[Rfam]
RNA sequence: AUGCGUACAGUGGGGCGCGCGAGCGCCAUCCACACCCACCUGAUCGCUGCUCGCUCCGUUUUGUUAGCC
Numbered sequence: 001a002u003g004c005g006u007a008c009a010g011u012g013g014g015g016c017g018c019g020c021g022a023g024c025g026c027c028a029u030c031c032a033c034a035c036c037c038a039c040c041u042g043a044u045c046g047c048u049g050c051u052c053g054c055u056c057c058g059u060u061u062u063g064u065u066a067g068c069c
Base pairs, nucleotide, nucleotide: 002009003008014027015026016025018023040067041066042065043064044063046061
The record is a 69-nucleotide RNA from Xanthomonas sp. Deola-Nashik, which matches "Xanthomonas sRNA sX9" in Rfam. By type it is a small RNA. On this family, see Schmidtke et al., Nucleic Acids Res 2011: "Genome-wide transcriptome analysis of the plant pathogen Xanthomonas identifies sRNAs with putative virulence functions". The organism belongs to Xanthomonas, within Bacteria.